[Rfam]
RNA sequence: GGUCAUGAGUGCCAGCGCCAAGCCCCGGCUCGCUGGACGGCAACCCUCCAGCUGCGGUGGGGUGCUCCGGGUGAUGACCGGGCUCCCGAAGGUCGGGAGCAAGCGCGCUGU
Number, nucleotide and partner (000 for none) at each position: 001g079002g078003u077004c076005a000006u000007g000008a000009g038010u000011g000012c036013c035014a034015g033016c032017g000018c000019c000020a000021a030022g029023c000024c000025c000026c000027g000028g000029c022030u021031c000032g016033c015034u014035g013036g012037a000038c009039g066040g065041c064042a000043a000044c062045c061046c060047u000048c057049c056050a000051g000052c000053u000054g000055c000056g049057g048058u000059g000060g046061g045062g044063u000064g041065c040066u039067c000068c000069g000070g000071g000072u000073g000074a000075u000076g004077a003078c002079c001080g000081g000082g100083c099084u098085c097086c096087c095088g094089a093090a000091g000092g000093u089094c088095g087096g086097g085098a084099g083100c082101a000102a000103g000104c000105g000106c000107g000108c000109u000110g000111u000
RNA: SAM (S-adenosyl methionine) riboswitch aptamer
Organism: Nocardia bovistercoris